[Rfam]
RNA: SAH (S-adenosyl-L-homocysteine) riboswitch aptamer
RNA sequence: GCUCCCAAGGAGCGUUGCAGCGCCCGCCACCCAUGGUGCGCCGGGCGUCAGGCUUGGGGGUCUCAACGGCGCUCAUUCCUU
Numbered sequence: 001g002c003u004c005c006c007a008a009g010g011a012g013c014g015u016u017g018c019a020g021c022g023c024c025c026g027c028c029a030c031c032c033a034u035g036g037u038g039c040g041c042c043g044g045g046c047g048u049c050a051g052g053c054u055u056g057g058g059g060g061u062c063u064c065a066a067c068g069g070c071g072c073u074c075a076u077u078c079c080u081u
Stems, first nucleotide, its partner, number of pairs: 002060007021047006